RNA: Eukaryotic large subunit ribosomal RNA, nucleotides 845 to 1125
Organism: Plasmodiophora brassicae
RNA sequence: GAGUCUUACAUAUAUGCGAGUAAUCAAGUGGGAAACUUGUUUGCGCAAUGAAGGUGACUGUGAUGUGAUGCUCGUCGCGUGCGGGCAGCAACAUCGGGCGGCUAAAACAACUGUACGACCAGGAGCAUAUCUGUAGGGACCCGAAAGAUGGUGAACUAUGCUUGAGCAGGAUGAAGCCAGGGGAAACUCUGGUGGAAGUCCGAAGCGAUACUGACGUGCAAAUCGUUCGUCUGACUUGAGUAUAGGGGCGAAAGACUAAUCGAACUAUCUAGUAGCUGGUU
Number, nucleotide and partner (000 for none) at each position: 001g000002a000003g000004u000005c137006u136007u135008a134009c133010a132011u000012a130013u129014a128015u127016g126017c125018g000019a000020g044021u043022a042023a000024u000025c039026a038027a037028g036029u035030g000031g000032g000033a000034a000035a029036c028037u027038u026039g025040u000041u000042u022043g021044c020045g000046c000047a000048a055049u054050g000051a000052a000053g000054g049055u048056g000057a000058c000059u000060g000061u000062g095063a094064u093065g092066u091067g000068a000069u087070g086071c085072u084073c083074g000075u000076c000077g000078c000079g000080u000081g000082c000083g073084g072085g071086c070087a069088g000089c000090a000091a066092c065093a064094u063095c062096g000097g120098g119099c117100g116101g000102c113103u000104a000105a000106a000107a000108c000109a000110a000111c000112u000113g102114u000115a000116c100117g099118a000119c098120c097121a000122g000123g000124a000125g017126c016127a015128u014129a013130u012131c000132u010133g009134u008135a007136g006137g005138g000139a000140c279141c278142c000143g276144a000145a000146a000147g269148a268149u267150g266151g265152u264153g000154a000155a000156c245157u244158a243159u242160g241161c240162u239163u238164g237165a236166g235167c233168a000169g201170g200171a199172u198173g000174a000175a000176g193177c192178c191179a190180g189181g188182g187183g000184a000185a000186a000187c182188u181189c180190u179191g178192g177193u176194g000195g000196a000197a000198g172199u171200c170201c169202g000203a000204a000205g230206c229207g228208a227209u000210a226211c225212u000213g224214a223215c000216g000217u000218g000219c000220a000221a000222a000223u214224c213225g211226u210227u208228c207229g206230u205231c000232u000233g167234a000235c166236u165237u164238g163239a162240g161241u160242a159243u158244a157245g156246g000247g257248g256249c000250g000251a000252a000253a000254g000255a000256c248257u247258a000259a000260u000261c000262g000263a000264a152265c151266u150267a149268u148269c147270u000271a000272g000273u000274a000275g000276c143277u000278g141279g140280u000281u000